Annotation: This 160-nucleotide sequence from Bradyrhizobium sediminis belongs to the Rfam family "speF leader". A search with the family's covariance model found it, with a score of 81 bits. Rfam describes the family as follows. This family is a putative regulatory RNA structure that is found upstream of the speF gene encoding ornithine decarboxylase in Agrobacterium tumefaciens and other alpha-proteobacteria. By type it is a cis-regulatory leader.
RNA sequence: UGCCGGCUUUCCACCAGCCGGCGCGAAUACCGAAGAGGCUUGUCCUUCAUUGCCAGGUGUGCGGGCGGGAUCCUUCCCAACCAAUCCACGGCAGCACAGUUCGGUCUGAGUCUUUUGGCUUCGUUGCGCCUCCAUCGCGCGAUGUGGCCGGAGCGCUCUU
Numbered sequence: 001u002g003c004c005g006g007c008u009u010u011c012c013a014c015c016a017g018c019c020g021g022c023g024c025g026a027a028u029a030c031c032g033a034a035g036a037g038g039c040u041u042g043u044c045c046u047u048c049a050u051u052g053c054c055a056g057g058u059g060u061g062c063g064g065g066c067g068g069g070a071u072c073c074u075u076c077c078c079a080a081c082c083a084a085u086c087c088a089c090g091g092c093a094g095c096a097c098a099g100u101u102c103g104g105u106c107u108g109a110g111u112c113u114u115u116u117g118g119c120u121u122c123g124u125u126g127c128g129c130c131u132c133c134a135u136c137g138c139g140c141g142a143u144g145u146g147g148c149c150g151g152a153g154c155g156c157u158c159u160u
Base pairs, nucleotide, nucleotide: 001023002022003021004020005019006018007017008016037054038053039052061140062139063138106123108121109120110119111118112117
Taxonomically the source falls in Bradyrhizobium (Bacteria, Pseudomonadati, Hyphomicrobiales, Nitrobacteraceae). Rfam links the family to the GO term regulation of gene expression.